Notes:
A member of the RNA family "mir-87 microRNA precursor family" from Rhynchophorus ferrugineus, 74 nucleotides long. The match comes from Rfam's covariance-model search (50 bits). Pairs were carried over by alignment from the consensus structure, which was predicted with RNAalifold. Rfam links the family to the GO terms miRNA-mediated post-transcriptional gene silencing and RISC complex. For this family Rfam cites "The small RNA profile during Drosophila melanogaster development" (Aravin et al., Dev Cell, 2003). Rfam 15.1 lists 420 matches to the family in 285 species. The organism belongs to Rhynchophorus, within Eukaryota.
RNA sequence: GUUUGGUCAGCUUGAAAUUUUGCCCUUCCUUGUUUUUGAAUACUGGGUGAGCAAAGUUUCAGGUGUGUCAAAGG
Numbered sequence: 001g002u003u004u005g006g007u008c009a010g011c012u013u014g015a016a017a018u019u020u021u022g023c024c025c026u027u028c029c030u031u032g033u034u035u036u037u038g039a040a041u042a043c044u045g046g047g048u049g050a051g052c053a054a055a056g057u058u059u060c061a062g063g064u065g066u067g068u069c070a071a072a073g074g
Stems, first nucleotide, its partner, number of pairs: 002072006010064006017057005023051001025049001028047003